[Rfam]
RNA sequence: AUGUGCAUCAAAGUGGUUGUGAAAUGUAUUGGUUCUCAUAUCACAGCCAGCUUUGAUGAGCUUUU
Numbered sequence: 001a002u003g004u005g006c007a008u009c010a011a012a013g014u015g016g017u018u019g020u021g022a023a024a025u026g027u028a029u030u031g032g033u034u035c036u037c038a039u040a041u042c043a044c045a046g047c048c049a050g051c052u053u054u055g056a057u058g059a060g061c062u063u064u065u
Stems, first nucleotide, its partner, number of pairs: 006058008014049009025040003
RNA: mir-2 microRNA precursor family
Organism: Mytilus edulis